A member of the RNA family "Small nucleolar RNA SNORA3/SNORA45 family" from Pipistrellus kuhlii, 130 nucleotides long.
RNA sequence: GCCGGAGACUAGAGUCACAUCUUGACAGCUAUUGUCCUGGUAUGCUAGAGUUCUUGGAGAGAAUCUUCUGGUCUUGAUUCACUGAUGAGAGUAGCAAAUGCCUCCAGUUGUGACCAGAUCAGAAACAUAG
Numbered sequence: 001g002c003c004g005g006a007g008a009c010u011a012g013a014g015u016c017a018c019a020u021c022u023u024g025a026c027a028g029c030u031a032u033u034g035u036c037c038u039g040g041u042a043u044g045c046u047a048g049a050g051u052u053c054u055u056g057g058a059g060a061g062a063a064u065c066u067u068c069u070g071g072u073c074u075u076g077a078u079u080c081a082c083u084g085a086u087g088a089g090a091g092u093a094g095c096a097a098a099u100g101c102c103u104c105c106a107g108u109u110g111u112g113a114c115c116a117g118a119u120c121a122g123a124a125a126c127a128u129a130g
Base pairs, nucleotide, nucleotide: 002057003056004055006054007053008051009050010049013046014045016044017043019041020040021039024036025035026034027033068122069121070120071119072118073117074116076114080112081111082110084108087105089103091101092100
Taxonomically the source falls in Pipistrellus (Eukaryota, Chordata, Euteleostomi, Mammalia). About the family: The members of this family belong to the H/ACA class of snoRNAs which are thought to guide the sites of modification of uridines to pseudouridines. This family includes mouse snoMBI-28 and human homologues ACA3 (SNORA3) and ACA3-2 (SNORA45). Both ACA3 and ACA3-2 share the same host gene. The family has 6 seed sequences and 2,080 matches in Rfam 15.1. The family is grouped with related families in Rfam's "SNORA3 clan".